[Rfam]
RNA sequence: UCGUGCUAGACGGGGAGUUAGCGGUGCCCUGUACCUGCAAUCCGCUAUAGCAGGGUUUAAUUCCUCAUCGAGGCCUUAAUCUGUGAGGCCUGCCCCAUGUAAGUGGUGUUGAUGGCUGGGUCCCACGCAACGGCAGCCCGUGAACCUCGUCAGGUCCGGAAGGAAGCAGCGAUAAGCGGUUCCUGUCGUGUGCCGUGGAGCAGCCUGGCCUGAGCUAACUGCAUGGGUAACGCUCAUAGAUUAUUGUCGACAUGAGGUGCACGA
Numbered sequence: 001u002c003g004u005g006c007u008a009g010a011c012g013g014g015g016a017g018u019u020a021g022c023g024g025u026g027c028c029c030u031g032u033a034c035c036u037g038c039a040a041u042c043c044g045c046u047a048u049a050g051c052a053g054g055g056u057u058u059a060a061u062u063c064c065u066c067a068u069c070g071a072g073g074c075c076u077u078a079a080u081c082u083g084u085g086a087g088g089c090c091u092g093c094c095c096c097a098u099g100u101a102a103g104u105g106g107u108g109u110u111g112a113u114g115g116c117u118g119g120g121u122c123c124c125a126c127g128c129a130a131c132g133g134c135a136g137c138c139c140g141u142g143a144a145c146c147u148c149g150u151c152a153g154g155u156c157c158g159g160a161a162g163g164a165a166g167c168a169g170c171g172a173u174a175a176g177c178g179g180u181u182c183c184u185g186u187c188g189u190g191u192g193c194c195g196u197g198g199a200g201c202a203g204c205c206u207g208g209c210c211u212g213a214g215c216u217a218a219c220u221g222c223a224u225g226g227g228u229a230a231c232g233c234u235c236a237u238a239g240a241u242u243a244u245u246g247u248c249g250a251c252a253u254g255a256g257g258u259g260c261a262c263g264a
Stems, first nucleotide, its partner, number of pairs: 001264006008058004012030004017025003034054005063257006072248003078242010091229002095226006103219002105216003114210008123198005128190002131188005136181001138179004147172004155164003
A member of the RNA family "Bacterial large signal recognition particle RNA" from Clostridium manihotivorum, 264 nucleotides long. The signal recognition particle (SRP) is a universally conserved ribonucleoprotein involved in the co-translational targeting of proteins to membranes. By type it is a non-coding RNA gene. The organism belongs to Clostridium, within Bacteria. The base pairs follow the family's consensus structure, which is taken from published work. Rfam links the family to the GO terms SRP-dependent cotranslational protein targeting to membrane, signal sequence recognition and signal recognition particle, plasma membrane targeting.